Rfam assigns this 123-nucleotide RNA from Rossellomorea aquimaris to the family "SAM riboswitch aptamer (S box leader)". The organism belongs to Rossellomorea, within Bacteria. Gene Ontology term of the family: regulation of gene expression.
[Rfam]
Nucleotides: 123
Base pairs, nucleotide, nucleotide: 001123002122003121004120005119006118007117008116013042015041016040017039021032022031023030026098027097028096029095043090044089045088046087048086049085050082051081052080053079054078055077056076094115099112100111101110102109103108
Number, partner (000 for none) and nucleotide at each position: 001123c002122u003121c004120u005119u006118a007117u008116c009000c010000a011000g012000a013042g014000a015041g016040g017039c018000g019000g020000a021032g022031g023030g024000a025000c026098u027097a028096g029095g030023c031022c032021c033000g034000a035000u036000g037000a038000a039017g040016c041015c042013c043090g044089g045088c046087a047000a048086c049085c050082u051081u052080c053079a054078u055077g056076c057000c058000u059000g060000c061000g062000a063000a064000a065000c066000a067000c068000u069000c070000g071000c072000a073000g074000c075000u076056g077055c078054a079053u080052g081051a082050a083000a084000a085049g086048g087046u088045g089044c090043u091000a092000a093000u094115u095029c096028c097027u098026g099112c100111a101110g102109a103108c104000g105000a106000a107000a108103g109102u110101c111100u112099g113000a114000a115094a116008g117007a118006u119005a120004a121003g122002a123001g